Shown here is a 105-nucleotide RNA sequence from Xenorhabdus innexi, a member of the family "TPP riboswitch aptamer (THI element)".
NCBI's taxonomy places the organism under Bacteria, Gammaproteobacteria, Enterobacterales, Morganellaceae, Xenorhabdus.
It scores 74 bits against the family's covariance model.
The family's consensus secondary structure is taken from published work.
About the family: Vitamin B(1) in its active form thiamin pyrophosphate (TPP) is an essential coenzyme that is synthesised by coupling of pyrimidine and thiazole moieties in bacteria.
RNA sequence: ACCAUCUCAACGGGGUGCGAUUGUUGUCAGACAACAUCGCUGAGAGCAGACCCGUAGAACCUGAUCCGGUUGGUACCGGCGUAGGGAUUUGAGCCACUAUCCUUU
Numbered sequence: 001a002c003c004a005u006c007u008c009a010a011c012g013g014g015g016u017g018c019g020a021u022u023g024u025u026g027u028c029a030g031a032c033a034a035c036a037u038c039g040c041u042g043a044g045a046g047c048a049g050a051c052c053c054g055u056a057g058a059a060c061c062u063g064a065u066c067c068g069g070u071u072g073g074u075a076c077c078g079g080c081g082u083a084g085g086g087a088u089u090u091g092a093g094c095c096a097c098u099a100u101c102c103u104u105u
Stems, first nucleotide, its partner, number of pairs: 006093005011054004016048001017040005060085004066079004